[Rfam]
RNA sequence: GGGUAAUGAUGUUUAAUCCUAUUCCAUUGCUGAAAUGACAGUGUGGAAGAAAAGCUACUGAACCC
Numbered sequence: 001g002g003g004u005a006a007u008g009a010u011g012u013u014u015a016a017u018c019c020u021a022u023u024c025c026a027u028u029g030c031u032g033a034a035a036u037g038a039c040a041g042u043g044u045g046g047a048a049g050a051a052a053a054g055c056u057a058c059u060g061a062a063c064c065c
Stems, first nucleotide, its partner, number of pairs: 001065004
Rfam assigns this 65-nucleotide RNA from Scyliorhinus torazame to the family "Small nucleolar RNA SNORD98". Taxonomically the source falls in Scyliorhinus (Eukaryota, Metazoa, Bilateria, Galeoidea). The base pairs follow the family's consensus structure. For this family Rfam cites "Purified box C/D snoRNPs are able to reproduce site-specific 2'-O-methylation of target RNA in vitro" (Galardi et al., Mol Cell Biol, 2002).